The family of this 68-nucleotide RNA sequence from Sulfolobus sp. SCGC AB-777_L09 is "Sulfolobus sRNA133".
Taxonomically the source falls in Sulfolobus (Archaea, Thermoproteota, Thermoprotei, Sulfolobaceae).
The base pairs follow the family's consensus structure.
About the family: This RNA has structural homologues in 3 archaeon Sulfolobus genomes: tokodaii, acidocalarius and solfotaricus.
The match comes from Rfam's covariance-model search (51 bits).

[Rfam]
RNA sequence: GAUGGGUUCGAUGAGGCUCCCCAUGUCCUUGAAGGGAGUGGUUUAGCUCCCGUAGACGGCAUGGGGAG
Dot-bracket structure: ................((((...((((.((...((((((......))))))...)).)))).))))..